[Rfam]
RNA sequence: GGAGAGGUGGCCGAGCGGUUGAAGGCGCAGCACUGGAAAUGCUGUUUAGGGGUAACUCUAACGAGGGUUCGAAUCCCUCUCUCUCCG
Numbered sequence: 001g002g003a004g005a006g007g008u009g010g011c012c013g014a015g016c017g018g019u020u021g022a023a024g025g026c027g028c029a030g031c032a033c034u035g036g037a038a039a040u041g042c043u044g045u046u047u048a049g050g051g052g053u054a055a056c057u058c059u060a061a062c063g064a065g066g067g068u069u070c071g072a073a074u075c076c077c078u079c080u081c082u083c084u085c086c087g
Base pairs, nucleotide, nucleotide: 001086002085003084004083005082006081007080010026011025012024028044029043030042031041032040063079064078065077066076067075
Dot-bracket structure: (((((((..(((...........))).(((((.......)))))..................(((((.......)))))))))))).
Description
A member of the RNA family "tRNA" from Candidatus Contendibacter odensensis, 87 nucleotides long. The organism belongs to Candidatus Contendibacter odensensis, within Bacteria.